Shown here is a 114-nucleotide RNA sequence from Sporomusa silvacetica, a member of the family "Molybdenum/Tungsten riboswitch aptamer (Moco RNA motif)". The literature on the family includes a 2008 paper in Mol Microbiol by Regulski et al., "in molybdenum cofactor and tungsten cofactor metabolism". The match comes from Rfam's covariance-model search (40 bits).
RNA sequence: UAGAAAGAUGAGUUCCGAGUCAUUAGUUUCCAUUUUGGAAGUAAUGACCGAAGGGUAUGAAGAGUAAUUUUUAUGCCUGCCCGUAUUGUGCGAAGGAAGUCUGGUAAAUCAGGC
Numbered sequence: 001u002a003g004a005a006a007g008a009u010g011a012g013u014u015c016c017g018a019g020u021c022a023u024u025a026g027u028u029u030c031c032a033u034u035u036u037g038g039a040a041g042u043a044a045u046g047a048c049c050g051a052a053g054g055g056u057a058u059g060a061a062g063a064g065u066a067a068u069u070u071u072u073a074u075g076c077c078u079g080c081c082c083g084u085a086u087u088g089u090g091c092g093a094a095g096g097a098a099g100u101c102u103g104g105u106a107a108a109u110c111a112g113g114c
Base pairs, nucleotide, nucleotide: 006105011100013098014097015096016095019048020047021046022045023044024043025042029039030038031037032036053078054077055076056075057074058073059072060071061070062069063068079091080090